A member of the RNA family "Y RNA" from Piliocolobus tephrosceles, 102 nucleotides long. The family's RNA type in Rfam is non-coding RNA gene. The source organism's lineage runs through Eukaryota, Metazoa, Chordata, Boreoeutheria and Piliocolobus.
[Rfam]
Nucleotides: 102
Stems, first nucleotide, its partner, number of pairs: 001098008010090002014086001016081003020077001022076001028064003032060002
Number, partner (000 for none) and nucleotide at each position: 001098g002097a003096c004095u005094a006093g007092u008091c009000c010090g011089a012000g013000u014086g015000u016081g017080g018079u019000a020077g021000u022076g023000a024000u025000u026000a027000u028064a029063a030062u031000u032060g033059g034000u035000u036000g037000a038000u039000c040000a041000c042000a043000a044000c045000c046000g047000g048000u049000u050000a051000c052000a053000a054000g055000u056000a057000u058000c059033u060032u061000u062030g063029u064028u065000c066000c067000u068000u069000c070000u071000u072000c073000a074000c075000u076022c077020u078000c079018a080017c081016u082000a083000u084000u085000u086014c087000a088000u089011u090010u091008g092007a093006u094005u095004a096003g097002u098001c099000u100000u101000a102000a

The family's consensus secondary structure is taken from published work. The family has 104 seed sequences and 26,986 matches in Rfam 15.1.